Annotation:
The record is a 173-nucleotide RNA sequence from Tetzosporium hominis, which matches "glmS glucosamine-6-phosphate activated ribozyme aptamer" in Rfam. The family's consensus secondary structure is taken from published work. It scores 103 bits against the family's covariance model.
RNA sequence: AAACAAGUUGAAGCGCCAGAGCUAAGGAAAUCGGACGGACACAGUCCUUAGCAGACGAGGUGGAGGUUUAUCGAGGAUUCGGCGGAUGCCUCCCGACCGCACUACGCCCGGUUGUCACUCUAUUUGUAAACCUGCCAAGUGAUUGGUAGACAGACCGAAUAGAAGGCGAAACU
Numbered sequence: 001a002a003a004c005a006a007g008u009u010g011a012a013g014c015g016c017c018a019g020a021g022c023u024a025a026g027g028a029a030a031u032c033g034g035a036c037g038g039a040c041a042c043a044g045u046c047c048u049u050a051g052c053a054g055a056c057g058a059g060g061u062g063g064a065g066g067u068u069u070a071u072c073g074a075g076g077a078u079u080c081g082g083c084g085g086a087u088g089c090c091u092c093c094c095g096a097c098c099g100c101a102c103u104a105c106g107c108c109c110g111g112u113u114g115u116c117a118c119u120c121u122a123u124u125u126g127u128a129a130a131c132c133u134g135c136c137a138a139g140u141g142a143u144u145g146g147u148a149g150a151c152a153g154a155c156c157g158a159a160u161a162g163a164a165g166g167c168g169a170a171a172c173u
Stems, first nucleotide, its partner, number of pairs: 021052007062093005071082004094114006119163007132149007